[Rfam]
RNA sequence: CCGUUAAGUAAUGAUGUGGUAGACGAAAUACCACAUAAUCACACCUUGUCACGGAUACCUCAUUGUCACAUUAUCACCUUAAAUGACAUGACAAUGACAUGUCGGUAAUAAGACAUAGUGACGUGACACUCUAUCUAUCACAUCAUAACUUAACGGAA
Numbered sequence: 001c002c003g004u005u006a007a008g009u010a011a012u013g014a015u016g017u018g019g020u021a022g023a024c025g026a027a028a029u030a031c032c033a034c035a036u037a038a039u040c041a042c043a044c045c046u047u048g049u050c051a052c053g054g055a056u057a058c059c060u061c062a063u064u065g066u067c068a069c070a071u072u073a074u075c076a077c078c079u080u081a082a083a084u085g086a087c088a089u090g091a092c093a094a095u096g097a098c099a100u101g102u103c104g105g106u107a108a109u110a111a112g113a114c115a116u117a118g119u120g121a122c123g124u125g126a127c128a129c130u131c132u133a134u135c136u137a138u139c140a141c142a143u144c145a146u147a148a149c150u151u152a153a154c155g156g157a158a
Stems, first nucleotide, its partner, number of pairs: 001156009011146013025132001027130001029128001032125003036121001038119002041116001045112002048109002051106002054103004071086004
RNA: MIR4371 microRNA precursor family